[Rfam]
RNA sequence: GACGGUCUGCGCUUCACGGCAGGAGUAACACUUCCCCGGGGCCUUAUUGAUCCCAAGGGAGCUGUCCCUGAGGAGACCCGUGGGUCUCUUCAUACGGCGCCCACCUACUUUGUAGGCACCCGGGAUCAACCUCUCCACCGGUCUGCGUGGAUCGUCG
Numbered sequence: 001g002a003c004g005g006u007c008u009g010c011g012c013u014u015c016a017c018g019g020c021a022g023g024a025g026u027a028a029c030a031c032u033u034c035c036c037c038g039g040g041g042c043c044u045u046a047u048u049g050a051u052c053c054c055a056a057g058g059g060a061g062c063u064g065u066c067c068c069u070g071a072g073g074a075g076a077c078c079c080g081u082g083g084g085u086c087u088c089u090u091c092a093u094a095c096g097g098c099g100c101c102c103a104c105c106u107a108c109u110u111u112g113u114a115g116g117c118a119c120c121c122g123g124g125a126u127c128a129a130c131c132u133c134u135c136c137a138c139c140g141g142u143c144u145g146c147g148u149g150g151a152u153c154g155u156c157g
Stems, first nucleotide, its partner, number of pairs: 002155010015141001017140003033125004038120002041117003057102003061098005070091009
Dot-bracket structure: .((((((((((...(.(((.............((((.((.(((.............(((.(((((....(((((((((....)))))))))..))))).)))............))).)).))))............))))....))))))))))..